[Rfam]
RNA sequence: UUCUUAUUGGAUUAUGACAACCACGUGUUCUAUUCUAAUUGACCAAUGACAACUACAAUACAUUUCAUCUUCCAUAGAGUUGACAUCCAAUCAGAUCAUGAUAUGUGAUCGUCAUCAUCC
Numbered sequence: 001u002u003c004u005u006a007u008u009g010g011a012u013u014a015u016g017a018c019a020a021c022c023a024c025g026u027g028u029u030c031u032a033u034u035c036u037a038a039u040u041g042a043c044c045a046a047u048g049a050c051a052a053c054u055a056c057a058a059u060a061c062a063u064u065u066c067a068u069c070u071u072c073c074a075u076a077g078a079g080u081u082g083a084c085a086u087c088c089a090a091u092c093a094g095a096u097c098a099u100g101a102u103a104u105g106u107g108a109u110c111g112u113c114a115u116c117a118u119c120c
Stems, first nucleotide, its partner, number of pairs: 020109001022107002025104002029100001031098001034095003038091003
About this RNA:
The record is a 120-nucleotide sequence from Glycine max, which matches "MIR1520 microRNA precursor family" in Rfam. Pairs were carried over by alignment from the consensus structure, which was predicted with RNAalifold. A search with the family's covariance model found it, with a score of 86 bits. The organism belongs to Glycine subgen. Soja, within Eukaryota. Rfam links the family to the GO terms RISC complex and miRNA-mediated post-transcriptional gene silencing.